[Rfam]
RNA sequence: CAAUAACGGGGUCGUACCACGUGGUAUCCGGACGGUAAUGGGAAACCGUUCUGCUCUGGUUCAGACUCCGGCAGGCCUGAUGGACACUGAGUCCAAAUGUCGUUAUCUGAUGAGUAACAAGCUCACGCUUACAGGCUGGUUUU
Numbered sequence: 001c002a003a004u005a006a007c008g009g010g011g012u013c014g015u016a017c018c019a020c021g022u023g024g025u026a027u028c029c030g031g032a033c034g035g036u037a038a039u040g041g042g043a044a045a046c047c048g049u050u051c052u053g054c055u056c057u058g059g060u061u062c063a064g065a066c067u068c069c070g071g072c073a074g075g076c077c078u079g080a081u082g083g084a085c086a087c088u089g090a091g092u093c094c095a096a097a098u099g100u101c102g103u104u105a106u107c108u109g110a111u112g113a114g115u116a117a118c119a120a121g122c123u124c125a126c127g128c129u130u131a132c133a134g135g136c137u138g139g140u141u142u143u
Stems, first nucleotide, its partner, number of pairs: 025112004030107002048077001050075005058067003080103004116141003120137003
Shown here is a 143-nucleotide RNA sequence from Escherichia coli, a member of the family "isrN Hfq binding RNA". The source organism's lineage runs through Bacteria, Pseudomonadati, Gammaproteobacteria, Enterobacterales and Escherichia coli. Rfam's curators put it in the seed alignment. It is annotated as a small RNA. Rfam 15.1 lists 141 matches to the family in 98 species.